[Rfam]
RNA sequence: GCUGGUGCGAUGAUUAUAAACAAUUCCUCGUUCUGAAUGCUGUGGAAAUUGGCAUGAUAGACUCAUUCUACACCCAUAGAAUAUGAGCACCA
Numbered sequence: 001g002c003u004g005g006u007g008c009g010a011u012g013a014u015u016a017u018a019a020a021c022a023a024u025u026c027c028u029c030g031u032u033c034u035g036a037a038u039g040c041u042g043u044g045g046a047a048a049u050u051g052g053c054a055u056g057a058u059a060g061a062c063u064c065a066u067u068c069u070a071c072a073c074c075c076a077u078a079g080a081a082u083a084u085g086a087g088c089a090c091c092a
Base pairs, nucleotide, nucleotide: 003092004091006089007088
The record is a 92-nucleotide sequence from Phoenix dactylifera, which matches "Small nucleolar RNA snoR8a" in Rfam. The base pairs follow the family's consensus structure, which was predicted with WAR. A reference for the family is Brown et al. (2001), "Multiple snoRNA gene clusters from Arabidopsis", RNA.